[Rfam]
RNA: glmS glucosamine-6-phosphate activated ribozyme aptamer
Organism: Ornithinibacillus halotolerans
RNA sequence: AAUACUAAUAAAGCGCCUGGACUAUUUUCUGAUCGGGAAAUGAAAAUAGUUGACGAGGAUGAAGGUUAUCGAAGAAUUCGGCGGAUGCCUUCCGAUUGCACACUCCAGUCGUGAUACUUUUUCUUAAAACAGUAGGGCAACUUACUGCACAGAGGAAAAAGUUGAGUGUAAA
Numbered sequence: 001a002a003u004a005c006u007a008a009u010a011a012a013g014c015g016c017c018u019g020g021a022c023u024a025u026u027u028u029c030u031g032a033u034c035g036g037g038a039a040a041u042g043a044a045a046a047u048a049g050u051u052g053a054c055g056a057g058g059a060u061g062a063a064g065g066u067u068a069u070c071g072a073a074g075a076a077u078u079c080g081g082c083g084g085a086u087g088c089c090u091u092c093c094g095a096u097u098g099c100a101c102a103c104u105c106c107a108g109u110c111g112u113g114a115u116a117c118u119u120u121u122u123c124u125u126a127a128a129a130c131a132g133u134a135g136g137g138c139a140a141c142u143u144a145c146u147g148c149a150c151a152g153a154g155g156a157a158a159a160a161g162u163u164g165a166g167u168g169u170a171a172a
Stems, first nucleotide, its partner, number of pairs: 020051008029042001061092005069081004093111006116162007130147007